[Rfam]
RNA: TPP riboswitch aptamer (THI element)
RNA sequence: AUAGUUUCCCCGGGGAGCCAUGUGGCUGAGAGGUGGGCGUAACGCCCCACGACCCGUCGAACCUGAUCCCGUUAACACGGGCGGAGGGAGGGAGCGUGGUUUCUGG
Numbered sequence: 001a002u003a004g005u006u007u008c009c010c011c012g013g014g015g016a017g018c019c020a021u022g023u024g025g026c027u028g029a030g031a032g033g034u035g036g037g038c039g040u041a042a043c044g045c046c047c048c049a050c051g052a053c054c055c056g057u058c059g060a061a062c063c064u065g066a067u068c069c070c071g072u073u074a075a076c077a078c079g080g081g082c083g084g085a086g087g088g089a090g091g092g093a094g095c096g097u098g099g100u101u102u103c104u105g106g
Stems, first nucleotide, its partner, number of pairs: 006094005011056004017026003033050005062087003068081004